A member of the RNA family "Mammalian CPEB3 ribozyme" from Alligator sinensis, 78 nucleotides long. Rfam links the family to the GO term RNA nuclease activity. A search with the family's covariance model found it, with a score of 41 bits. Pairs were carried over by alignment from the consensus structure, which is taken from published work. On this family, see Salehi-Ashtiani et al., Science 2006: "A genomewide search for ribozymes reveals an HDV-like sequence in the human CPEB3 gene".
[Rfam]
RNA sequence: CACAAACUCCCAAUGACCACAGCAGAAGUGUUCACAUUGCAGUCCCUGUCAGAUUCUAACAGAUCCGCUAAAUUUGCU
Numbered sequence: 001c002a003c004a005a006a007c008u009c010c011c012a013a014u015g016a017c018c019a020c021a022g023c024a025g026a027a028g029u030g031u032u033c034a035c036a037u038u039g040c041a042g043u044c045c046c047u048g049u050c051a052g053a054u055u056c057u058a059a060c061a062g063a064u065c066c067g068c069u070a071a072a073u074u075u076g077c078u
Base pairs, nucleotide, nucleotide: 015044016043017042021078022077023076024075025074026073028040029039030038050067052065053064054063055062